[Rfam]
Rfam assigns this 107-nucleotide RNA from Papaver somniferum to the family "Small nucleolar RNA Z278". Rfam 15.1 lists 1,130 matches to the family in 214 species. From the family's description: snoZ278 is a C/D box small nucleolar RNA. Its methylation guide targets have not been reported. The family's RNA type in Rfam is C/D-box small nucleolar RNA. A reference for the family is Chen et al. (2003), "The high diversity of snoRNAs in plants: identification and comparative study of 120 snoRNA genes from Oryza sativa", Nucleic Acids Res. The match comes from Rfam's covariance-model search (39 bits).

RNA sequence: GCCUAUGAUGAUGUUAUCCAAUUAGUUGAGAUGUAGUGGAACUGAGACCGUGUUUACAUGGAGAACCCCUUGGGGAAACUAUAUUCGUAUGACAAGAAAACUGAGGC
Dot-bracket structure: (((............................................(((((....)))))...........................................)))
Numbered sequence: 001g002c003c004u005a006u007g008a009u010g011a012u013g014u015u016a017u018c019c020a021a022u023u024a025g026u027u028g029a030g031a032u033g034u035a036g037u038g039g040a041a042c043u044g045a046g047a048c049c050g051u052g053u054u055u056a057c058a059u060g061g062a063g064a065a066c067c068c069c070u071u072g073g074g075g076a077a078a079c080u081a082u083a084u085u086c087g088u089a090u091g092a093c094a095a096g097a098a099a100a101c102u103g104a105g106g107c
Stems, first nucleotide, its partner, number of pairs: 001107003048061005